[Rfam]
RNA sequence: UGCCGCCGGCGGCUCUGACGAUAUUGCACUACUGUGCGCUCAGGGAAGCAGUGCAAUAGUAUUGUCAAAGCAUCGGGCGCCAGC
Numbered sequence: 001u002g003c004c005g006c007c008g009g010c011g012g013c014u015c016u017g018a019c020g021a022u023a024u025u026g027c028a029c030u031a032c033u034g035u036g037c038g039c040u041c042a043g044g045g046a047a048g049c050a051g052u053g054c055a056a057u058a059g060u061a062u063u064g065u066c067a068a069a070g071c072a073u074c075g076g077g078c079g080c081c082a083g084c
Stems, first nucleotide, its partner, number of pairs: 002081001004079001007076001009074001012071003016067004023057008
RNA: mir-301 microRNA precursor family